mir-16 microRNA precursor family: a 144-nucleotide RNA sequence from Notechis scutatus. The match comes from Rfam's covariance-model search (38 bits). The family is grouped with related families in Rfam's "mir-15 clan".
[Rfam]
RNA sequence: UCCUCUCUGUUGCAGCCCCUCAAAUAUUGGAAGAGUGCUAUCCUGUCUCCCCUCGUCCACUGGGCCUGGCUAGUCUGGUGAAGAGAAGGACCAGGGGAGACAGGAUAGCAUCUUCCAAUAUUUGAGGGGCUGCCCCAGAGAGGA
Number, nucleotide and partner (000 for none) at each position: 001u144002c143003c142004u000005c140006u139007c138008u000009g000010u137011u000012g133013c132014a131015g130016c129017c128018c127019c000020u000021c124022a000023a122024a121025u120026a119027u118028u117029g116030g115031a114032a113033g112034a111035g000036u000037g000038c000039u000040a000041u000042c000043c000044u000045g000046u000047c000048u000049c000050c000051c000052c000053u000054c000055g000056u000057c000058c000059a000060c000061u000062g000063g000064g000065c000066c000067u000068g000069g000070c000071u000072a000073g000074u000075c000076u000077g000078g000079u000080g000081a000082a000083g000084a000085g000086a000087a000088g000089g000090a000091c000092c000093a000094g000095g000096g000097g000098a000099g000100a000101c000102a000103g000104g000105a000106u000107a000108g000109c000110a000111u034112c033113u032114u031115c030116c029117a028118a027119u026120a025121u024122u023123u000124g021125a000126g000127g018128g017129g016130c015131u014132g013133c012134c000135c000136c000137a010138g007139a006140g005141a000142g003143g002144a001